[Rfam]
RNA sequence: GUGAACCAAAGAGGUGCAAGAGCGUAGUUAGAGUGUUGAAGAUCGUGAACAGGUCAUUGAAAACACUUAGAGGACGAACUUGCCGAAACGGCCAGACAAUGUUCACAGCACGGCCGUUGGGGUUUAGGGUGGAAGCCUUAAACACUGUCAUCUUAACGGAUUUAUAGGAUGGAGCACUUUGGGGACG
Numbered sequence: 001g002u003g004a005a006c007c008a009a010a011g012a013g014g015u016g017c018a019a020g021a022g023c024g025u026a027g028u029u030a031g032a033g034u035g036u037u038g039a040a041g042a043u044c045g046u047g048a049a050c051a052g053g054u055c056a057u058u059g060a061a062a063a064c065a066c067u068u069a070g071a072g073g074a075c076g077a078a079c080u081u082g083c084c085g086a087a088a089c090g091g092c093c094a095g096a097c098a099a100u101g102u103u104c105a106c107a108g109c110a111c112g113g114c115c116g117u118u119g120g121g122g123u124u125u126a127g128g129g130u131g132g133a134a135g136c137c138u139u140a141a142a143c144a145c146u147g148u149c150a151u152c153u154u155a156a157c158g159g160a161u162u163u164a165u166a167g168g169a170u171g172g173a174g175c176a177c178u179u180u181g182g183g184g185a186c187g
Stems, first nucleotide, its partner, number of pairs: 006182006016083005023076002031068007087118007097108001119146002122143008148172007

Source information
The record is a 187-nucleotide RNA sequence from Bacteriovorax sp. Seq25_V, which matches "Lysine riboswitch aptamer" in Rfam. The match comes from Rfam's covariance-model search (80 bits). Taxonomically the source falls in Bacteriovorax (Bacteria, Bacteriovoracia, Bacteriovoracales, Bacteriovoracaceae). About the family: Riboswitches are metabolite binding domains within certain messenger RNAs that serve as precision sensors for their corresponding targets. Allosteric rearrangement of mRNA structure is mediated by ligand binding, and this results in modulation of gene expression. This family includes riboswitches that sense lysine in a number of genes involved in lysine metabolism, including lysC. The base pairs follow the family's consensus structure, which is taken from published work.